The family of this 131-nucleotide RNA from Brenneria rubrifaciens is "EFASI RNA". Taxonomically the source falls in Brenneria (Bacteria, Pseudomonadati, Enterobacterales, Pectobacteriaceae).
RNA sequence: AAGACCGAAUACCGAGGCAGGCCGGAAGGCCUGGGGAAAUAUCCUGACACGCGUCAGGCGGCCGCACCGAGUGCGUCACCGUACCCCGCAAUACCUCACCUGACACCCCGCCCCGGUGCAGGUAUUCGUCU
Numbered sequence: 001a002a003g004a005c006c007g008a009a010u011a012c013c014g015a016g017g018c019a020g021g022c023c024g025g026a027a028g029g030c031c032u033g034g035g036g037a038a039a040u041a042u043c044c045u046g047a048c049a050c051g052c053g054u055c056a057g058g059c060g061g062c063c064g065c066a067c068c069g070a071g072u073g074c075g076u077c078a079c080c081g082u083a084c085c086c087c088g089c090a091a092u093a094c095c096u097c098a099c100c101u102g103a104c105a106c107c108c109c110g111c112c113c114c115g116g117u118g119c120a121g122g123u124a125u126u127c128g129u130c131u
Base pairs, nucleotide, nucleotide: 002131003130004129005128007127008126009125010124011123012122013121018033019032020031021030022029023028034087035086036085043058044057045056046055047054059081060080061079063075064074065073066072067071